Rfam assigns this 155-nucleotide RNA sequence from Senna tora to the family "small nucleolar RNA snoR137". By type it is an H/ACA-box small nucleolar RNA. The base pairs follow the family's consensus structure, which was predicted with RNAalifold. Rfam links the family to the GO terms RNA processing and nucleolus.
Nucleotides: 155
Base pairs, nucleotide, nucleotide: 003064004063005062006061007060008059016051017050018049019048020047021045022044023043024042025041089149090148091147092146093145102135103134104133107130108129109128110127
Number, partner (000 for none) and nucleotide at each position: 001000g002000u003064u004063g005062c006061u007060u008059c009000u010000u011000a012000c013000u014000g015000g016051u017050g018049a019048a020047c021045u022044c023043u024042u025041c026000c027000u028000a029000u030000a031000u032000u033000g034000a035000a036000c037000a038000g039000u040000g041025g042024a043023g044022g045021a046000u047020g048019u049018u050017c051016a052000u053000g054000u055000u056000u057000c058000c059008g060007a061006a062005g063004c064003a065000u066000a067000g068000a069000u070000u071000g072000a073000u074000u075000u076000g077000a078000u079000u080000a081000u082000u083000a084000a085000u086000c087000u088000g089149g090148c091147c092146a093145g094000u095000u096000u097000u098000a099000a100000a101000c102135a103134g104133c105000g106000u107130g108129g109128u110127g111000u112000a113000a114000u115000u116000c117000u118000c119000u120000c121000u122000a123000g124000c125000u126000g127110c128109a129108c130107c131000u132000u133104g134103c135102u136000a137000c138000c139000u140000g141000u142000c143000u144000c145093c146092u147091g148090g149089u150000a151000u152000a153000u154000u155000u